[Rfam]
RNA sequence: UCGUCGAAAAGGCAAAGUCUUUGAAAAAUGACGACGCAAAGCUAUAGGGGCUAAAGUUAACAAGACAAUGCCAGCCAGCUACCGAA
Numbered sequence: 001u002c003g004u005c006g007a008a009a010a011g012g013c014a015a016a017g018u019c020u021u022u023g024a025a026a027a028a029u030g031a032c033g034a035c036g037c038a039a040a041g042c043u044a045u046a047g048g049g050g051c052u053a054a055a056g057u058u059a060a061c062a063a064g065a066c067a068a069u070g071c072c073a074g075c076c077a078g079c080u081a082c083c084g085a086a
Stems, first nucleotide, its partner, number of pairs: 012037002017032003021028002040080004047076002049072003056066003
RNA: c-di-GMP-I riboswitch aptamer
Organism: Paenibacillus thalictri